Description:
Shown here is a 97-nucleotide sequence from Marinobacterium sp. LSUCC0821, a member of the family "Glycine riboswitch aptamer". It scores 58 bits against the family's covariance model.
RNA sequence: AUGGAUCGUCCGGGAGAGAGCAUUUUGCGAUUAUGCAUUAUGCCGCCGAAGGAGCACGUGCCCCGCAAACUCUCAGGCAAAAGGACCGGCGAUCUUU
Numbered sequence: 001a002u003g004g005a006u007c008g009u010c011c012g013g014g015a016g017a018g019a020g021c022a023u024u025u026u027g028c029g030a031u032u033a034u035g036c037a038u039u040a041u042g043c044c045g046c047c048g049a050a051g052g053a054g055c056a057c058g059u060g061c062c063c064c065g066c067a068a069a070c071u072c073u074c075a076g077g078c079a080a081a082a083g084g085a086c087c088g089g090c091g092a093u094c095u096u097u
Stems, first nucleotide, its partner, number of pairs: 010089004020043004045078003048074002052072003058064001